Shown here is an 87-nucleotide sequence from Paucimonas lemoignei, a member of the family "sRNA-Xcc1". The match comes from Rfam's covariance-model search (68 bits). Rfam 15.1 lists 421 matches to the family in 299 species. NCBI's taxonomy places the organism under Bacteria, Pseudomonadati, Burkholderiales, Burkholderiaceae, Paucimonas. The family's consensus secondary structure was predicted with RNAalifold.
Nucleotides: 087
Base pairs, nucleotide, nucleotide: 001079002078003077004076005075006074007073009071012046013045014044015043027036028035029034047064048063049062050061051060052059
Number, partner (000 for none) and nucleotide at each position: 001079g002078g003077g004076c005075g006074g007073g008000u009071u010000g011000c012046g013045g014044c015043g016000c017000c018000c019000a020000u021000a022000c023000a024000a025000g026000a027036c028035c029034c030000g031000a032000a033000a034029g035028g036027g037000g038000a039000a040000a041000a042000g043015c044014g045013u046012c047064g048063g049062c050061c051060g052059u053000c054000u055000c056000g057000u058000u059052g060051c061050g062049g063048u064047u065000u066000u067000c068000a069000a070000c071009a072000u073007c074006c075005u076004g077003c078002c079001c080000a081000c082000c083000c084000g085000c086000u087000u